[Rfam]
RNA sequence: UCCUGGUGUCCUUCAUUCCACCGGAAUCCGUCCAUCCCCAACCCGGAUUCCGGUGAAAUGAAGCCCCUCAGAGA
Numbered sequence: 001u002c003c004u005g006g007u008g009u010c011c012u013u014c015a016u017u018c019c020a021c022c023g024g025a026a027u028c029c030g031u032c033c034a035u036c037c038c039c040a041a042c043c044c045g046g047a048u049u050c051c052g053g054u055g056a057a058a059u060g061a062a063g064c065c066c067c068u069c070a071g072a073g074a
Stems, first nucleotide, its partner, number of pairs: 011063006019055003023051004028046003
RNA: mir-205 microRNA precursor family
Organism: Calyptomena viridis